[Rfam]
Nucleotides: 068
Base pairs, nucleotide, nucleotide: 001068002067003066004065
Number, partner (000 for none) and nucleotide at each position: 001068u002067a003066c004065a005000c006000a007000u008000g009000a010000u011000g012000a013000u014000u015000u016000u017000u018000c019000u020000u021000a022000u023000u024000g025000g026000u027000c028000c029000g030000u031000g032000u033000u034000u035000c036000u037000g038000a039000u040000c041000u042000u043000a044000g045000u046000g047000a048000u049000g050000u051000a052000u053000c054000a055000g056000u057000c058000a059000u060000u061000c062000u063000g064000a065004u066003g067002u068001a
The family of this 68-nucleotide RNA sequence from Trichonephila clavipes is "Small nucleolar RNA SNORD18".
The family is grouped with related families in Rfam's "SNORD18 clan".
The match comes from Rfam's covariance-model search (47 bits).
The family's RNA type in Rfam is C/D-box small nucleolar RNA.
Rfam 15.1 lists 2,622 matches to the family in 960 species.
The organism belongs to Trichonephila, within Eukaryota.